[Rfam]
RNA: Small nucleolar RNA SNORA28
Organism: Erinaceus europaeus
RNA sequence: AAACCAUAUUCUGUGGCAGAUAAUGGAAACUGUCUUGAACAAAUCAAGUUUGCUAUAGCAUGAGAGUCUAACCUGUUCUGGUGUUAACUUCUUGAGACAGGCUAUUACAUAGGCUUAAACAUU
Numbered sequence: 001a002a003a004c005c006a007u008a009u010u011c012u013g014u015g016g017c018a019g020a021u022a023a024u025g026g027a028a029a030c031u032g033u034c035u036u037g038a039a040c041a042a043a044u045c046a047a048g049u050u051u052g053c054u055a056u057a058g059c060a061u062g063a064g065a066g067u068c069u070a071a072c073c074u075g076u077u078c079u080g081g082u083g084u085u086a087a088c089u090u091c092u093u094g095a096g097a098c099a100g101g102c103u104a105u106u107a108c109a110u111a112g113g114c115u116u117a118a119a120c121a122u123u
Stems, first nucleotide, its partner, number of pairs: 009048002012041003018035005064116007074109003079104004088096003